[Rfam]
RNA sequence: AGAGGUUACAGACAUGAGGCCAUAGCAGAUGCAUUCAGGGUGUGGCCUUGUCAGAUUCCAAUGAAUCUGUAAAUUAUGCU
Numbered sequence: 001a002g003a004g005g006u007u008a009c010a011g012a013c014a015u016g017a018g019g020c021c022a023u024a025g026c027a028g029a030u031g032c033a034u035u036c037a038g039g040g041u042g043u044g045g046c047c048u049u050g051u052c053a054g055a056u057u058c059c060a061a062u063g064a065a066u067c068u069g070u071a072a073a074u075u076a077u078g079c080u
Base pairs, nucleotide, nucleotide: 017048018047019046020045021044024080025079026078027077029075031043032042033041052069053068054067055066056065057064058063